[Rfam]
RNA: Small nucleolar RNA snoR74
Organism: Protea cynaroides
Nucleotides: 130
Base pairs, nucleotide, nucleotide: 005046006045007044011036015032016031017030062122063121064120065119066118067117068116075112076111077110078109080107081106
Number, partner (000 for none) and nucleotide at each position: 001000g002000a003000a004000g005046a006045a007044g008000c009000a010000g011036a012000a013000a014000a015032c016031a017030u018000u019000u020000c021000c022000u023000c024000c025000a026000u027000g028000a029000a030017g031016u032015g033000a034000u035000a036011u037000u038000u039000u040000g041000u042000a043000a044007c045006u046005u047000c048000a049000g050000g051000g052000g053000a054000a055000u056000u057000u058000u059000u060000c061000a062122u063121a064120u065119u066118g067117u068116u069000u070000u071000c072000a073000g074000g075112u076111g077110a078109a079000c080107c081106u082000g083000u084000u085000u086000c087000u088000g089000u090000u091000u092000a093000u094000u095000u096000u097000a098000g099000u100000c101000a102000c103000a104000a105000a106081a107080g108000a109078u110077u111076c112075a113000g114000g115000u116068a117067a118066u119065g120064a121063u122062g123000a124000u125000u126000c127000c128000u129000u130000u